[Rfam]
RNA sequence: UCAGAAAAAUAGCAAACCUAUUGAAAAAUAAGGACGCAAAAUCACAGGUCUAACGCUUAUCGGCUAGGAUGGCUGGAUUACCUGA
Dot-bracket structure: ...........((...(.((((....)))).)...))..((((.((((((....(((....)))...)))..)))))))......
Numbered sequence: 001u002c003a004g005a006a007a008a009a010u011a012g013c014a015a016a017c018c019u020a021u022u023g024a025a026a027a028a029u030a031a032g033g034a035c036g037c038a039a040a041a042u043c044a045c046a047g048g049u050c051u052a053a054c055g056c057u058u059a060u061c062g063g064c065u066a067g068g069a070u071g072g073c074u075g076g077a078u079u080a081c082c083u084g085a
Stems, first nucleotide, its partner, number of pairs: 012037002017032001019030004040079004045075003048070003055064003

c-di-GMP-I riboswitch aptamer: an 85-nucleotide RNA from Oceanobacillus halophilus.